A member of the RNA family "TPP riboswitch aptamer (THI element)" from Paenibacillus whitsoniae, 111 nucleotides long. Lineage of the source: Bacteria > Bacilli > Caryophanales > Paenibacillaceae > Paenibacillus. Pairs were carried over by alignment from the consensus structure, which is taken from published work. It scores 58 bits against the family's covariance model.
RNA sequence: GAAUAGCAACACGGGUGCUUGAUGAAGUCAGGCUGAGAUAGCGGCCUUAUGCCGCUGACCGUUAAUCUGAUCUGGAUAAUGCCAGCGUAGAGAAAAUGUGGUGCCCUUUGA
Numbered sequence: 001g002a003a004u005a006g007c008a009a010c011a012c013g014g015g016u017g018c019u020u021g022a023u024g025a026a027g028u029c030a031g032g033c034u035g036a037g038a039u040a041g042c043g044g045c046c047u048u049a050u051g052c053c054g055c056u057g058a059c060c061g062u063u064a065a066u067c068u069g070a071u072c073u074g075g076a077u078a079a080u081g082c083c084a085g086c087g088u089a090g091a092g093a094a095a096a097u098g099u100g101g102u103g104c105c106c107u108u109u110g111a
Base pairs, nucleotide, nucleotide: 006099007098008097011062012061013060014059017033018032019031020030021029040056041055042054043053044052066091067090068089069088072085073084074083075082